[Rfam]
The record is a 170-nucleotide RNA sequence from Medicago truncatula, which matches "MIR2619 microRNA precursor family" in Rfam. Rfam links the family to the GO terms RISC complex and miRNA-mediated post-transcriptional gene silencing. Taxonomically the source falls in Medicago (Eukaryota, Streptophyta, Magnoliopsida, Mesangiospermae). It scores 169 bits against the family's covariance model. The family's consensus secondary structure was predicted with RNAalifold.
RNA sequence: AAACAGCCCCAUAUGUUUUGAUUCUUUGGCAGUUUUAGACCCCAAGGCAAAAAAAAAAAAAAAAAAUUGACACGUGGCACCUCACUUAGGGUGCCACGUCAACAUUGACCGAGUCAACAAUGGUCUAGGAGUCCAAAACUGUCAAAGAAUCAAAACAUAGGGGGCUGUUU
Numbered sequence: 001a002a003a004c005a006g007c008c009c010c011a012u013a014u015g016u017u018u019u020g021a022u023u024c025u026u027u028g029g030c031a032g033u034u035u036u037a038g039a040c041c042c043c044a045a046g047g048c049a050a051a052a053a054a055a056a057a058a059a060a061a062a063a064a065a066a067u068u069g070a071c072a073c074g075u076g077g078c079a080c081c082u083c084a085c086u087u088a089g090g091g092u093g094c095c096a097c098g099u100c101a102a103c104a105u106u107g108a109c110c111g112a113g114u115c116a117a118c119a120a121u122g123g124u125c126u127a128g129g130a131g132u133c134c135a136a137a138a139c140u141g142u143c144a145a146a147g148a149a150u151c152a153a154a155a156c157a158u159a160g161g162g163g164g165c166u167g168u169u170u
Base pairs, nucleotide, nucleotide: 001170002169004167005166006165007164008163012159013158014157015156016155017154018153019152020151021150022149023148024147025146026145027144028143029142030141031140032139033138034137035136036135038133039132040131042129043128045126072099073098075096076095077094078093079092080091081090